[Rfam]
RNA sequence: UGGGACCUUCGGGGCCCUUGAACAGAUAGCGGGGCAACCCGCUGCAAGCUAACGGAAGACAGAAA
Numbered sequence: 001u002g003g004g005a006c007c008u009u010c011g012g013g014g015c016c017c018u019u020g021a022a023c024a025g026a027u028a029g030c031g032g033g034g035c036a037a038c039c040c041g042c043u044g045c046a047a048g049c050u051a052a053c054g055g056a057a058g059a060c061a062g063a064a065a
Base pairs, nucleotide, nucleotide: 002017003016004015006014007013008012028043029042030041031040032039033038
RNA: L2-Alphaproteobacteria ribosomal protein leader
Organism: Rhodobacter xanthinilyticus